[Rfam]
The family of this 46-nucleotide RNA sequence from Schistosoma bovis is "Histone 3' UTR stem-loop". The family's RNA type in Rfam is cis-regulatory element. The source organism's lineage runs through Eukaryota, Metazoa, Platyhelminthes, Neodermata and Schistosoma.
Nucleotides: 046
Base pairs, nucleotide, nucleotide: 006021007020008019009018010017011016
Number, partner (000 for none) and nucleotide at each position: 001000g002000u003000a004000a005000a006021g007020g008019c009018c010017c011016u012000u013000u014000u015000c016011a017010g018009g019008g020007c021006c022000a023000c024000c025000c026000a027000c028000a029000a030000u031000u032000c033000g034000a035000u036000u037000u038000g039000a040000a041000u042000u043000c044000u045000u046000u